[Rfam]
RNA sequence: CCGCACAGCCGGGGAGACGGCGGUUCCCUGCACCUGCAGUCCGCCAUAGCAGGGGUGAUAUCCCGCCUCGGGCGUGCAGAGCUGUGAAGCAGCCCACGGUAAGCGGCGUAGACGCGAGGGCCCCCGCGCGGCGGACCUUUGCGAACCGUGUCAGGGCAGGAAUGCAGCAGCACUAAGCAAAUGCGUACGGGCGAUGCGGGAUCGCCGUCGCCGAGCUGGCUGCCGCGGUAACGUUCAUGGCUCCCGUUCAAAGCGGGAUGUGCGG
Numbered sequence: 001c002c003g004c005a006c007a008g009c010c011g012g013g014g015a016g017a018c019g020g021c022g023g024u025u026c027c028c029u030g031c032a033c034c035u036g037c038a039g040u041c042c043g044c045c046a047u048a049g050c051a052g053g054g055g056u057g058a059u060a061u062c063c064c065g066c067c068u069c070g071g072g073c074g075u076g077c078a079g080a081g082c083u084g085u086g087a088a089g090c091a092g093c094c095c096a097c098g099g100u101a102a103g104c105g106g107c108g109u110a111g112a113c114g115c116g117a118g119g120g121c122c123c124c125c126g127c128g129c130g131g132c133g134g135a136c137c138u139u140u141g142c143g144a145a146c147c148g149u150g151u152c153a154g155g156g157c158a159g160g161a162a163u164g165c166a167g168c169a170g171c172a173c174u175a176a177g178c179a180a181a182u183g184c185g186u187a188c189g190g191g192c193g194a195u196g197c198g199g200g201a202u203c204g205c206c207g208u209c210g211c212c213g214a215g216c217u218g219g220c221u222g223c224c225g226c227g228g229u230a231a232c233g234u235u236c237a238u239g240g241c242u243c244c245c246g247u248u249c250a251a252a253g254c255g256g257g258a259u260g261u262g263c264g265g
Base pairs, nucleotide, nucleotide: 001265002264003263004262005261006260008056009055010054011029012028013027014026015025016024018022033053034052035051036050037049062257063256064255065254066253068251070249071248072247073246074245079243080242081241082240083239084238085237086236087235088234095227097225098224099223100222103220104219105217106216107215114211115210116209117208119206120205121204123200124199125198126197127196128195129191132189133188135186136185138181139180140179141178142177148173149172150171151170156165157164158163
RNA: Bacterial large signal recognition particle RNA
Organism: Stomatobaculum longum